[Rfam]
RNA sequence: GUGCAUCUAUUUGACAGACCUGGGGCAGUUACUGUCUGCUAAGAUUUCCACUACAGAUGCAAGAAAAAUCUGUCCUCACGCUUUCUGUCUGUCUGAUUGUGGCAGCCCAGAUUGAAUGGGGGAAUACAGGG
Numbered sequence: 001g002u003g004c005a006u007c008u009a010u011u012u013g014a015c016a017g018a019c020c021u022g023g024g025g026c027a028g029u030u031a032c033u034g035u036c037u038g039c040u041a042a043g044a045u046u047u048c049c050a051c052u053a054c055a056g057a058u059g060c061a062a063g064a065a066a067a068a069u070c071u072g073u074c075c076u077c078a079c080g081c082u083u084u085c086u087g088u089c090u091g092u093c094u095g096a097u098u099g100u101g102g103c104a105g106c107c108c109a110g111a112u113u114g115a116a117u118g119g120g121g122g123a124a125u126a127c128a129g130g131g
Stems, first nucleotide, its partner, number of pairs: 002061007012050002016047003020043001025039004073123005081114001084111004089105005
RNA: Small nucleolar RNA SNORA31
Organism: Lipotes vexillifer